[Rfam]
RNA sequence: GAGUCUAGCACGUGCACGAGUCAGGGGCCCUUGUCAAAAGCCUGCAGUGCAAUGAAGGUGAGAGCUGGCGCACGCCGGCUGAAGUGGGAUCCCGGUGUGCGUGUCCUGCCUGGCAGCCCAUAUGGUGCAUGACCAGUCCAUCUUGCCUGCCACCCUCUCAUGCAGGGAGGUGGAGGGUGAGGGUCCAUGCUAGGACCCGAAAGAUGGUGAACUAUGCCUGGGCAGGGUGAAGCCAGAGGAAACUCCGGUGGAGGUCCGUAGCAGUCCUCUCAUGCAAAUCCAUCCUGGGUCUAGGGGUGAAAGACUAAUCGAACCAUCUAGUAGCUGGUU
Numbered sequence: 001g002a003g004u005c006u007a008g009c010a011c012g013u014g015c016a017c018g019a020g021u022c023a024g025g026g027g028c029c030c031u032u033g034u035c036a037a038a039a040g041c042c043u044g045c046a047g048u049g050c051a052a053u054g055a056a057g058g059u060g061a062g063a064g065c066u067g068g069c070g071c072a073c074g075c076c077g078g079c080u081g082a083a084g085u086g087g088g089a090u091c092c093c094g095g096u097g098u099g100c101g102u103g104u105c106c107u108g109c110c111u112g113g114c115a116g117c118c119c120a121u122a123u124g125g126u127g128c129a130u131g132a133c134c135a136g137u138c139c140a141u142c143u144u145g146c147c148u149g150c151c152a153c154c155c156u157c158u159c160a161u162g163c164a165g166g167g168a169g170g171u172g173g174a175g176g177g178u179g180a181g182g183g184u185c186c187a188u189g190c191u192a193g194g195a196c197c198c199g200a201a202a203g204a205u206g207g208u209g210a211a212c213u214a215u216g217c218c219u220g221g222g223c224a225g226g227g228u229g230a231a232g233c234c235a236g237a238g239g240a241a242a243c244u245c246c247g248g249u250g251g252a253g254g255u256c257c258g259u260a261g262c263a264g265u266c267c268u269c270u271c272a273u274g275c276a277a278a279u280c281c282a283u284c285c286u287g288g289g290u291c292u293a294g295g296g297g298u299g300a301a302a303g304a305c306u307a308a309u310c311g312a313a314c315c316a317u318c319u320a321g322u323a324g325c326u327g328g329u330u
Base pairs, nucleotide, nucleotide: 005193006192007191008190009189010188012186014184015183017181020048021047025043026042027041028040052059053058084133085132087130091125092124137175138173139172140171141170142169143168196328197327199325203318204317205316206315207314208313212294213293214292216290217289218288219287220286221285222284225257226256227255228254232249233248234247236245237244238243264279296306297305298304
The family of this 330-nucleotide part of an RNA from Donacobius atricapilla is "Eukaryotic large subunit ribosomal RNA". The source organism's lineage runs through Eukaryota, Craniata, Euteleostomi, Australaves and Donacobius.